[Rfam]
RNA sequence: CUUACAGUGUUUAUUGGCAUUCUGUCCACCUCCUAAUUAUGGGGGGGAAAAAGACCUCUUUUACUUUAUGAUCUGAUCUUCGAUGGAGGUGGACAUACUGUCAACUGAGCUCUGUUGG
Dot-bracket structure: ..........(..((((((...(((((((((((...................................................)))))))))))...))))))...)..........
Numbered sequence: 001c002u003u004a005c006a007g008u009g010u011u012u013a014u015u016g017g018c019a020u021u022c023u024g025u026c027c028a029c030c031u032c033c034u035a036a037u038u039a040u041g042g043g044g045g046g047g048a049a050a051a052a053g054a055c056c057u058c059u060u061u062u063a064c065u066u067u068a069u070g071a072u073c074u075g076a077u078c079u080u081c082g083a084u085g086g087a088g089g090u091g092g093a094c095a096u097a098c099u100g101u102c103a104a105c106u107g108a109g110c111u112c113u114g115u116u117g118g
Stems, first nucleotide, its partner, number of pairs: 011108001014104006023095011
Rfam assigns this 118-nucleotide RNA from Hibiscus trionum to the family "MIR394 microRNA precursor family". Its family is annotated with miRNA-mediated post-transcriptional gene silencing and RISC complex in the Gene Ontology. Rfam 15.1 lists 724 matches to the family in 216 species. Pairs were carried over by alignment from the consensus structure, which was predicted with WAR. NCBI's taxonomy places the organism under Eukaryota, Streptophytina, Spermatophyta, eudicotyledons, Hibiscus.